[Rfam]
RNA sequence: GCGGCCGGAUCGCCGAAUCCCCGCACGGGGAACCGGGGACCCAUGUGCUCCCCAGGGGUGAAUCGACGUACGUCGUAGGGCGACUCCUGGCCCGAACCCGUCAGCUAACCCGGUAGGCGGACGAGGAGAGGAGUG
Numbered sequence: 001g002c003g004g005c006c007g008g009a010u011c012g013c014c015g016a017a018u019c020c021c022c023g024c025a026c027g028g029g030g031a032a033c034c035g036g037g038g039a040c041c042c043a044u045g046u047g048c049u050c051c052c053c054a055g056g057g058g059u060g061a062a063u064c065g066a067c068g069u070a071c072g073u074c075g076u077a078g079g080g081c082g083a084c085u086c087c088u089g090g091c092c093c094g095a096a097c098c099c100g101u102c103a104g105c106u107a108a109c110c111c112g113g114u115a116g117g118c119g120g121a122c123g124a125g126g127a128g129a130g131g132a133g134u135g
Stems, first nucleotide, its partner, number of pairs: 011119004018031003032114006042055001056099003064075004078093004
RNA: c-di-AMP riboswitch aptamer (ydaO/yuaA leader)
Organism: Actinomadura macrotermitis